[Rfam]
This 447-nucleotide part of an RNA from Candidatus Methanomassiliicoccus intestinalis belongs to the Rfam family "Archaeal large subunit ribosomal RNA". A reference for the family is Yusupov et al. (2001), "Crystal structure of the ribosome at 5.5 A resolution", Science.
RNA sequence: CCUCUCGAAACUUGUCGCAGCAAGACCUCAGCCGAGGUAGAUUGUGGGGUAGAGCGACCAAUUAGGGAUUUAGGCCGAGAAAUCGGUCGGUCUCUUGUUAAACUCCGAACCUGCGAUCGCCGAAGACGCUGGGAUUGAGGGCCUCUGGGGUAAGCUUGGGGUCCAUAAGGAAAUGAAUCCAGCCUGAGGUUAAGGUCCCUAAAUACCGGCUAAGUGAAACAUGAAACCGAGUCCGUAGUCUAAAACAACCGGGAGGUGGGCUUAGAAGCAGCCACCCUUUAAAGAAAGCGUAACAGCUCACCGGUCGAGAUUAUGGGCCGGGAAGAGAGACGGGUCUAAAGCCGGUUACCGAUACCUCAGAGCACCGCAAGGUGAUCUGGUAGAGAGGUGACGUGCAUGGGUGGAAGUUUGGCCGUGAGGUCAAGUGGACCGUGCUCGUAUAUGGAU
Numbered sequence: 001c002c003u004c005u006c007g008a009a010a011c012u013u014g015u016c017g018c019a020g021c022a023a024g025a026c027c028u029c030a031g032c033c034g035a036g037g038u039a040g041a042u043u044g045u046g047g048g049g050u051a052g053a054g055c056g057a058c059c060a061a062u063u064a065g066g067g068a069u070u071u072a073g074g075c076c077g078a079g080a081a082a083u084c085g086g087u088c089g090g091u092c093u094c095u096u097g098u099u100a101a102a103c104u105c106c107g108a109a110c111c112u113g114c115g116a117u118c119g120c121c122g123a124a125g126a127c128g129c130u131g132g133g134a135u136u137g138a139g140g141g142c143c144u145c146u147g148g149g150g151u152a153a154g155c156u157u158g159g160g161g162u163c164c165a166u167a168a169g170g171a172a173a174u175g176a177a178u179c180c181a182g183c184c185u186g187a188g189g190u191u192a193a194g195g196u197c198c199c200u201a202a203a204u205a206c207c208g209g210c211u212a213a214g215u216g217a218a219a220c221a222u223g224a225a226a227c228c229g230a231g232u233c234c235g236u237a238g239u240c241u242a243a244a245a246c247a248a249c250c251g252g253g254a255g256g257u258g259g260g261c262u263u264a265g266a267a268g269c270a271g272c273c274a275c276c277c278u279u280u281a282a283a284g285a286a287a288g289c290g291u292a293a294c295a296g297c298u299c300a301c302c303g304g305u306c307g308a309g310a311u312u313a314u315g316g317g318c319c320g321g322g323a324a325g326a327g328a329g330a331c332g333g334g335u336c337u338a339a340a341g342c343c344g345g346u347u348a349c350c351g352a353u354a355c356c357u358c359a360g361a362g363c364a365c366c367g368c369a370a371g372g373u374g375a376u377c378u379g380g381u382a383g384a385g386a387g388g389u390g391a392c393g394u395g396c397a398u399g400g401g402u403g404g405a406a407g408u409u410u411g412g413c414c415g416u417g418a419g420g421u422c423a424a425g426u427g428g429a430c431c432g433u434g435c436u437c438g439u440a441u442a443u444g445g446a447u
Stems, first nucleotide, its partner, number of pairs: 001388006011024005027133006036121003040118008052106001053104002060099003064095006073088006139164007147157002169180003184360007194350003203347001205346006227321003231318010248305005254278003259273003279283001284299001288297002361378002363374004389442001391439003395435006407426008